Shown here is a 31-nucleotide RNA sequence from Erpetoichthys calabaricus, a member of the family "Iron response element II". Rfam links the family to the GO term response to iron ion. IRE, TFRC, SLC40A1, SDHB, SLC11A2, CDC42BPA, ACO2, ALAS2_H.SAPIENS, CDC14A, EPAS1, ALAS2, qoxD, Hao1, NDUFS1, transferrin, Aconitate.

RNA sequence: GAAAUAUUGGAGGCAGUGUCUUCCAUAUUUC
Numbered sequence: 001g002a003a004a005u006a007u008u009g010g011a012g013g014c015a016g017u018g019u020c021u022u023c024c025a026u027a028u029u030u031c
Stems, first nucleotide, its partner, number of pairs: 001031007009024005014018001